A member of the RNA family "MIR530 microRNA precursor family" from Prunus avium, 209 nucleotides long. A search with the family's covariance model found it, with a score of 94 bits. Gene Ontology terms of the family: miRNA-mediated post-transcriptional gene silencing and RISC complex.

[Rfam]
Nucleotides: 209
Base pairs, nucleotide, nucleotide: 001209002208003207004206005205007203008202009201012200013199015197016196017195018194019193020192021191022190023189024188025187026186028184029183030182031181032180033179034178035177036176037175038174039173040172041171042170
Number, partner (000 for none) and nucleotide at each position: 001209g002208c003207c004206a005205a006000u007203a008202u009201g010000u011000u012200g013199c014000u015197u016196u017195u018194a019193u020192c021191u022190g023189c024188a025187u026186u027000u028184g029183c030182a031181c032180c033179u034178g035177c036176a037175c038174u039173u040172g041171u042170u043000u044000c045000u046000u047000c048000c049000u050000u051000c052000a053000u054000c055000u056000c057000c058000u059000c060000a061000a062000a063000a064000c065000u066000u067000u068000a069000a070000a071000c072000a073000c074000c075000a076000g077000a078000g079000c080000u081000u082000c083000a084000a085000a086000g087000c088000c089000u090000c091000a092000a093000a094000g095000c096000a097000u098000g099000g100000c101000u102000a103000a104000g105000g106000c107000a108000a109000g110000a111000a112000a113000a114000a115000a116000g117000g118000a119000a120000a121000g122000a123000g124000a125000a126000u127000u128000a129000a130000g131000a132000a133000u134000a135000u136000g137000u138000g139000u140000g141000g142000a143000a144000g145000g146000u147000a148000g149000a150000a151000a152000g153000g154000a155000a156000g157000a158000g159000a160000a161000g162000g163000a164000a165000c166000a167000a168000g169000c170042a171041a172040u173039a174038g175037g176036u177035g178034c179033a180032g181031g182030u183029g184028c185000c186026a187025a188024u189023g190022c191021a192020g193019g194018u195017g196016a197015a198000u199013g200012c201009c202008a203007u204000c205005u206004u207003g208002g209001u